Nucleotides: 215
Base pairs, nucleotide, nucleotide: 013162014161030154031153032152033151034150035149036148037147042057043056044055045054064094065093066092098104099103106130107129108128109127111125112124113123132146133145134144135143136142173214174213175212185204186203187202188201189200190199191198
Number, partner (000 for none) and nucleotide at each position: 001000u002000u003000a004000g005000u006000c007000a008000u009000c010000a011000u012000c013162a014161g015000g016000g017000a018000a019000u020000a021000a022000a023000g024000a025000a026000u027000a028000a029000u030154g031153u032152g033151u034150g035149g036148u037147g038000a039000a040000u041000c042057c043056c044055c045054c046000u047000a048000a049000g050000c051000g052000g053000c054045g055044g056043g057042g058000u059000c060000a061000u062000g063000c064094u065093g066092a067000a068000u069000u070000g071000a072000g073000g074000a075000a076000u077000a078000c079000c080000c081000u082000c083000a084000u085000c086000g087000a088000c089000g090000u091000u092066u093065c094064g095000u096000u097000u098104u099103u100000a101000u102000u103099g104098a105000c106130g107129a108128a109127u110000c111125a112124g113123g114000a115000g116000g117000u118000c119000a120000g121000c122000g123113c124112c125111u126000g127109a128108u129107u130106c131000a132146c133145c134144g135143g136142g137000a138000g139000g140000c141000a142136c143135c144134c145133g146132g147037c148036a149035c150034c151033a152032c153031a154030c155000c156000a157000c158000c159000a160000u161014c162013u163000a164000a165000u166000a167000a168000u169000u170000u171000a172000a173214u174213g175212u176000g177000u178000a179000u180000c181000g182000u183000u184000c185204u186203g187202c188201c189200u190199g191198c192000u193000u194000u195000a196000c197000g198191g199190c200189a201188g202187g203186u204185a205000a206000u207000u208000u209000c210000u211000u212175g213174u214173a215000c